[Rfam]
RNA sequence: GGUUGGGCGGCUGAAGCCGUUUUCAAGAAUCAGCUUCUUGGGUGGGAAGUC
Numbered sequence: 001g002g003u004u005g006g007g008c009g010g011c012u013g014a015a016g017c018c019g020u021u022u023u024c025a026a027g028a029a030u031c032a033g034c035u036u037c038u039u040g041g042g043u044g045g046g047a048a049g050u051c
Stems, first nucleotide, its partner, number of pairs: 003026003006021006033050006